Overview: Metazoan signal recognition particle RNA: a 298-nucleotide RNA sequence from Ixodes scapularis. It scores 253 bits against the family's covariance model.
RNA sequence: GCCGGGGGUUGUGGCGUGCCCCUGUAAUCCAGCUGCCUGGAGGCCUGGACUAGAGGACGGGUUGAGGCAGGGAGUUCUGCCCCUUGGCGACCUAUGUUGAUCGGGUGUCCGCGCUAAGCUGGGCGUCGAUAUGGUGACCCCGGGUGACCCCGGGGCGACCAGGUCGCCUAAGGAGGAGCGAACCGGCCCAGGGCGGAAACGCAGCAGGCAAAAGCUCCCGCGUCCUGCAGUAGUGGGGUCGCACCUGUGAGUGGGCGGCAUGGGGCAGCCCGGUCGACACAUCCGGACCUAGUCCUUC
Numbered sequence: 001g002c003c004g005g006g007g008g009u010u011g012u013g014g015c016g017u018g019c020c021c022c023u024g025u026a027a028u029c030c031a032g033c034u035g036c037c038u039g040g041a042g043g044c045c046u047g048g049a050c051u052a053g054a055g056g057a058c059g060g061g062u063u064g065a066g067g068c069a070g071g072g073a074g075u076u077c078u079g080c081c082c083c084u085u086g087g088c089g090a091c092c093u094a095u096g097u098u099g100a101u102c103g104g105g106u107g108u109c110c111g112c113g114c115u116a117a118g119c120u121g122g123g124c125g126u127c128g129a130u131a132u133g134g135u136g137a138c139c140c141c142g143g144g145u146g147a148c149c150c151c152g153g154g155g156c157g158a159c160c161a162g163g164u165c166g167c168c169u170a171a172g173g174a175g176g177a178g179c180g181a182a183c184c185g186g187c188c189c190a191g192g193g194c195g196g197a198a199a200c201g202c203a204g205c206a207g208g209c210a211a212a213a214g215c216u217c218c219c220g221c222g223u224c225c226u227g228c229a230g231u232a233g234u235g236g237g238g239u240c241g242c243a244c245c246u247g248u249g250a251g252u253g254g255g256c257g258g259c260a261u262g263g264g265g266c267a268g269c270c271c272g273g274u275c276g277a278c279a280c281a282u283c284c285g286g287a288c289c290u291a292g293u294c295c296u297u298c
Base pairs, nucleotide, nucleotide: 001044002043003042004023005022006021007020008019009018028041029040030039047295048294049293050292051291052290053289058285059284060283061282062281066275067274068273070271071270072269077268078267079266080265081264082263083262085260086259088257089256091255092254093253094252095251097249102247103246104245105244106243107242108241109237110236112235113234114233115232116231118228119227121225122224123223124222125221126220127166128165129164130163132161133160134159135158138155139154140153141152142151143150144149167173168172175218176217177216178215179214186209187208188207193202194201195200
Rfam 15.1 lists 383,523 matches to the family in 1,221 species. The source organism's lineage runs through Eukaryota, Chelicerata, Parasitiformes, Ixodinae and Ixodes.